[Rfam]
RNA sequence: CAGCGGGCCACGCUGUCCCAACGCAGCGCGUGCUCUCUGUGAGGAGAGAAUAU
Numbered sequence: 001c002a003g004c005g006g007g008c009c010a011c012g013c014u015g016u017c018c019c020a021a022c023g024c025a026g027c028g029c030g031u032g033c034u035c036u037c038u039g040u041g042a043g044g045a046g047a048g049a050a051u052a053u
Base pairs, nucleotide, nucleotide: 011028012027013026014025015024016023033048034047035046036045037044038043
The record is a 53-nucleotide sequence from Rhizorhapis suberifaciens, which matches "serC leader" in Rfam. Taxonomically the source falls in Rhizorhapis (Bacteria, Pseudomonadota, Sphingomonadales, Sphingomonadaceae). The pairing is the family consensus, mapped onto this sequence. Rfam's curators write: This family is a putative regulatory RNA structure that is found upstream of the serC-serA operon in some alpha-proteobacteria. The final stem of the structure overlaps the ribosome binding site of the serC reading frame. Rfam classes the family as a cis-regulatory leader.